[Rfam]
RNA: Plant signal recognition particle RNA
Organism: Carnegiea gigantea
RNA sequence: GCUGAGCUCGGUCACUUGAGCUUGUAACCCAAGUGGGGGCAUCAAGGUGGGUGGAACAUUGGCUCACUCAUUUGAGCCGGAUCUGUUAUGGCUAGAUGCUGGCUUGCCCUCUCCAAGUUGGGAGCUGACAUGACUGAUCCAGGCGUAGGCUUGGGUUGGUUGGGUCCUGAAGCGGCAGGGACUACAUGAGGCUGGCUUCACAGAGCAAUGAACACUGCCCGCUCUUGUCAGUGGAAGGAUAACGAAUCGGUGCCAUUCAGAUCCAAGAGUGCCCAGUUGGCUGUGGUUACCUAUUGAACCCCUACCUUU
Dot-bracket structure: (((((((((((....))))))))....(((....))))))...((((((((.(...(((.((.((((.((.(((.((.(((((((..((((.((....((((.(((.((..((((.(.(((((((.(((.((((((((((((((....)))))))))))))).)))(....).(((((....(.(((....(((......)))....))).)..))))).))))))).)..)))).))....))).)))))))))).)))))))......)).))).))...)))).)..).).))..).)))))))).
Numbered sequence: 001g002c003u004g005a006g007c008u009c010g011g012u013c014a015c016u017u018g019a020g021c022u023u024g025u026a027a028c029c030c031a032a033g034u035g036g037g038g039g040c041a042u043c044a045a046g047g048u049g050g051g052u053g054g055a056a057c058a059u060u061g062g063c064u065c066a067c068u069c070a071u072u073u074g075a076g077c078c079g080g081a082u083c084u085g086u087u088a089u090g091g092c093u094a095g096a097u098g099c100u101g102g103c104u105u106g107c108c109c110u111c112u113c114c115a116a117g118u119u120g121g122g123a124g125c126u127g128a129c130a131u132g133a134c135u136g137a138u139c140c141a142g143g144c145g146u147a148g149g150c151u152u153g154g155g156u157u158g159g160u161u162g163g164g165u166c167c168u169g170a171a172g173c174g175g176c177a178g179g180g181a182c183u184a185c186a187u188g189a190g191g192c193u194g195g196c197u198u199c200a201c202a203g204a205g206c207a208a209u210g211a212a213c214a215c216u217g218c219c220c221g222c223u224c225u226u227g228u229c230a231g232u233g234g235a236a237g238g239a240u241a242a243c244g245a246a247u248c249g250g251u252g253c254c255a256u257u258c259a260g261a262u263c264c265a266a267g268a269g270u271g272c273c274c275a276g277u278u279g280g281c282u283g284u285g286g287u288u289a290c291c292u293a294u295u296g297a298a299c300c301c302c303u304a305c306c307u308u309u
Stems, first nucleotide, its partner, number of pairs: 001040003004023008028037003044308008053299001057296002059293001061291001062288001064286004069279002072276003076272002079264007088256004093252002099250004104245003108238002112235004117229001119227007127166003131162014167172001174219005183212001185210003192203003